[Rfam]
RNA sequence: UUCUAGGUCCAAAAUGCUAUAUUUUCCAAGUACAUAUCUGAUUGCUGUAUGUGGAAAAUGACUUGCUGAGUGAUUCUGGAU
Numbered sequence: 001u002u003c004u005a006g007g008u009c010c011a012a013a014a015u016g017c018u019a020u021a022u023u024u025u026c027c028a029a030g031u032a033c034a035u036a037u038c039u040g041a042u043u044g045c046u047g048u049a050u051g052u053g054g055a056a057a058a059u060g061a062c063u064u065g066c067u068g069a070g071u072g073a074u075u076c077u078g079g080a081u
Base pairs, nucleotide, nucleotide: 002080003079004078005077006076007074008073009072010070
RNA: Small nucleolar RNA SNORD121A